[Rfam]
RNA sequence: AUUGUAAGUUUCAAGGCCGCAGCAGAAGCACUCACAGUACGGCCUGCCAGAUUCCAAUGAAAUCUGCAAAUUCUGCU
Numbered sequence: 001a002u003u004g005u006a007a008g009u010u011u012c013a014a015g016g017c018c019g020c021a022g023c024a025g026a027a028g029c030a031c032u033c034a035c036a037g038u039a040c041g042g043c044c045u046g047c048c049a050g051a052u053u054c055c056a057a058u059g060a061a062a063u064c065u066g067c068a069a070a071u072u073c074u075g076c077u
Stems, first nucleotide, its partner, number of pairs: 015044004021077007028040001030038001048066006
Rfam assigns this 77-nucleotide RNA from Crocodylus porosus to the family "Mammalian CPEB3 ribozyme". The family's consensus secondary structure is taken from published work. NCBI's taxonomy places the organism under Eukaryota, Chordata, Gnathostomata, Archosauria, Crocodylus. It scores 45 bits against the family's covariance model.